[Rfam]
Rfam assigns this 62-nucleotide sequence to the family "RAGATH-18 RNA". Actinobacteria, Firmicutes, Fusobacteria, Thermotogae (1 example). By type it is a small RNA.

RNA sequence: CCUUUGGAGUGUCAUACCAAACUGUAGUAGCCCAGGCAAGGCAGGACACGUUGAAUAAGGAA
Numbered sequence: 001c002c003u004u005u006g007g008a009g010u011g012u013c014a015u016a017c018c019a020a021a022c023u024g025u026a027g028u029a030g031c032c033c034a035g036g037c038a039a040g041g042c043a044g045g046a047c048a049c050g051u052u053g054a055a056u057a058a059g060g061a062a
Base pairs, nucleotide, nucleotide: 001060002059003058004057009049010048011047012046013045022044023043024042030037031036